A member of the RNA family "Small nucleolar RNA snR60/Z15/Z230/Z193/J17" from Aquarana catesbeiana, 73 nucleotides long. It scores 51 bits against the family's covariance model. The pairing is the family consensus, mapped onto this sequence. The literature on the family includes a 1999 paper in Science by Lowe and Eddy, "A computational screen for methylation guide snoRNAs in yeast".
RNA sequence: UGAAUGUACAUGAUGAAAACAUAGUUCAGCUGAUUUGCUGUGAAGAACAGUCUUUCGCUCCUAUCUGAUGCAU
Numbered sequence: 001u002g003a004a005u006g007u008a009c010a011u012g013a014u015g016a017a018a019a020c021a022u023a024g025u026u027c028a029g030c031u032g033a034u035u036u037g038c039u040g041u042g043a044a045g046a047a048c049a050g051u052c053u054u055u056c057g058c059u060c061c062u063a064u065c066u067g068a069u070g071c072a073u
Stems, first nucleotide, its partner, number of pairs: 004073005